Rfam assigns this 192-nucleotide RNA sequence from Chitinasiproducens palmae to the family "FMN riboswitch aptamer (RFN element)". A search with the family's covariance model found it, with a score of 90 bits.
RNA sequence: CCAAGUCUUCAGGGCGGGGUGCAAUUCCCCACCGGCGGUAGGUCGUUCGCCUUGCGCGUGCGACGAGCCCGCGAGCGCCGUCGCGGCGCGCCUCGUGAACCGGCUGGUCCGGUCGCGACGCGUCGCGACGGGUCAGCAGAUCCGGUUCGAUGCCGGAGCCGACGGUGAUAGUCCGGAUAGAAGAAGACCUGC
Numbered sequence: 001c002c003a004a005g006u007c008u009u010c011a012g013g014g015c016g017g018g019g020u021g022c023a024a025u026u027c028c029c030c031a032c033c034g035g036c037g038g039u040a041g042g043u044c045g046u047u048c049g050c051c052u053u054g055c056g057c058g059u060g061c062g063a064c065g066a067g068c069c070c071g072c073g074a075g076c077g078c079c080g081u082c083g084c085g086g087c088g089c090g091c092c093u094c095g096u097g098a099a100c101c102g103g104c105u106g107g108u109c110c111g112g113u114c115g116c117g118a119c120g121c122g123u124c125g126c127g128a129c130g131g132g133u134c135a136g137c138a139g140a141u142c143c144g145g146u147u148c149g150a151u152g153c154c155g156g157a158g159c160c161g162a163c164g165g166u167g168a169u170a171g172u173c174c175g176g177a178u179a180g181a182a183g184a185a186g187a188c189c190u191g192c
Stems, first nucleotide, its partner, number of pairs: 003190001005188006017029003031172002033161002035072004067159002075137002141157005163175003
The RFN element is a highly conserved domain that is found frequently in the 5'-untranslated regions of prokaryotic mRNAs that encode for flavin mononucleotide (FMN) biosynthesis and transport proteins.